[Rfam]
Shown here is a 125-nucleotide sequence from Cohnella lubricantis, a member of the family "Guanidine-I riboswitch aptamer". Rfam's curators write: This family represents a conserved RNA structure found upstream of the ykkC and yxkD genes in Bacillus subtilis and related genes in other bacteria. The function of this family is unclear although it has been suggested that it may function to switch on efflux pumps and detoxification systems in response to harmful environmental molecules. On this family, see Reiss et al., Structure 2017: "Structural Basis for Ligand Binding to the Guanidine-I Riboswitch". It scores 85 bits against the family's covariance model. The organism belongs to Cohnella, within Bacteria.
RNA sequence: CGAAGGGUUCCCUAGGGUUCCGCGCAUCGGCUUCCGGAACGGAAGCGGCUGGUGCGGCCUGGUCCGAGAGGGAACGCGCCGAUCCGCGAGUUCGGCGUACACGGAGGGACAAAAGCCCGGGAGUA
Numbered sequence: 001c002g003a004a005g006g007g008u009u010c011c012c013u014a015g016g017g018u019u020c021c022g023c024g025c026a027u028c029g030g031c032u033u034c035c036g037g038a039a040c041g042g043a044a045g046c047g048g049c050u051g052g053u054g055c056g057g058c059c060u061g062g063u064c065c066g067a068g069a070g071g072g073a074a075c076g077c078g079c080c081g082a083u084c085c086g087c088g089a090g091u092u093c094g095g096c097g098u099a100c101a102c103g104g105a106g107g108g109a110c111a112a113a114a115g116c117c118c119g120g121g122a123g124u125a
Stems, first nucleotide, its partner, number of pairs: 007075006015065002020062002022059001023056010076098007100120001102123001106118003